[Rfam]
RNA sequence: CCUCCAUAGGGCCUUCUCUUCCCAGUUCUUCCUGGACUCAGGGAAAAGCUGGGUUGAGAAGGUGAAAAGAAAAAACA
Dot-bracket structure: .............(((((..(((((...((((((....)))).))...)))))..))))).................